This 77-nucleotide sequence from Corchorus olitorius belongs to the Rfam family "Small nucleolar RNA R21".
Gene Ontology terms of the family: RNA processing and nucleolus.
Rfam classes the family as a C/D-box small nucleolar RNA.
[Rfam]
RNA sequence: GCACCCUAUGAAGAAUAAUUCUUGAAAUUAAAAGUAGUGGACUGACCAUUAUUGAUGAGUAAUGAAUCUGAGGAUGC
Numbered sequence: 001g002c003a004c005c006c007u008a009u010g011a012a013g014a015a016u017a018a019u020u021c022u023u024g025a026a027a028u029u030a031a032a033a034g035u036a037g038u039g040g041a042c043u044g045a046c047c048a049u050u051a052u053u054g055a056u057g058a059g060u061a062a063u064g065a066a067u068c069u070g071a072g073g074a075u076g077c
Stems, first nucleotide, its partner, number of pairs: 001077003005073002